[Rfam]
RNA sequence: CGCGCGAUGCAAAGGACUUAAAGAACUCCUUCAAGGACCGGGGAAAGAACCCACCGGACCCCACCCCACCCCACGCUCACCCCCGUCACUCGCACGGGUGACAUUGGCCAAUUGGGCUGGAUUUGCGGUCGGUUGGCGGGCAUAUGCUCGCGGCGACAACCACAGACAUGCGACGGCCCCCGGCCGGGACUGGCAUCCCGAUCGAGGGCCUGACCACCGAGGAAGUAAGGGCUUCCCG
Numbered sequence: 001c002g003c004g005c006g007a008u009g010c011a012a013a014g015g016a017c018u019u020a021a022a023g024a025a026c027u028c029c030u031u032c033a034a035g036g037a038c039c040g041g042g043g044a045a046a047g048a049a050c051c052c053a054c055c056g057g058a059c060c061c062c063a064c065c066c067c068a069c070c071c072c073a074c075g076c077u078c079a080c081c082c083c084c085g086u087c088a089c090u091c092g093c094a095c096g097g098g099u100g101a102c103a104u105u106g107g108c109c110a111a112u113u114g115g116g117c118u119g120g121a122u123u124u125g126c127g128g129u130c131g132g133u134u135g136g137c138g139g140g141c142a143u144a145u146g147c148u149c150g151c152g153g154c155g156a157c158a159a160c161c162a163c164a165g166a167c168a169u170g171c172g173a174c175g176g177c178c179c180c181c182g183g184c185c186g187g188g189a190c191u192g193g194c195a196u197c198c199c200g201a202u203c204g205a206g207g208g209c210c211u212g213a214c215c216a217c218c219g220a221g222g223a224a225g226u227a228a229g230g231g232c233u234u235c236c237c238g
Stems, first nucleotide, its partner, number of pairs: 006218001008216002015071001086101006116154002118150003175210005181204002186199004221236005
Dot-bracket structure: .....(.((.....(.......................................................)..............((((((....))))))..............(((((...........................)))..))....................(((((.((...((((......))))...)).)))))....)).)..(((((......)))))..
Shown here is a 238-nucleotide RNA from Streptomyces sp. ISL-10, a member of the family "Streptomyces sRNA 4677". Taxonomically the source falls in Streptomyces (Bacteria, Actinomycetota, Kitasatosporales, Streptomycetaceae). The base pairs follow the family's consensus structure.